[Rfam]
RNA sequence: ACAACAAAUCGGAGCCCUAUCACUAGGGCUCCUAUUCAUGGGAGAGGAGAAACCGGACGAAGAGCUUAUGGGGAAACGUAAGUCUUCUCCGCGG
Number, nucleotide and partner (000 for none) at each position: 001a000002c000003a000004a000005c000006a000007a000008a000009u000010c000011g032012g031013a030014g029015c028016c027017c026018u025019a024020u000021c000022a000023c000024u019025a018026g017027g016028g015029c014030u013031c012032c011033u000034a000035u042036u041037c000038a000039u000040g000041g036042g035043a000044g000045a000046g000047g000048a000049g000050a000051a000052a000053c000054c091055g090056g089057a088058c000059g087060a086061a085062g084063a000064g083065c082066u081067u080068a079069u000070g000071g000072g000073g000074a000075a000076a000077c000078g000079u068080a067081a066082g065083u064084c062085u061086u060087c059088u057089c056090c055091g054092c000093g000094g000
RNA: ylbH leader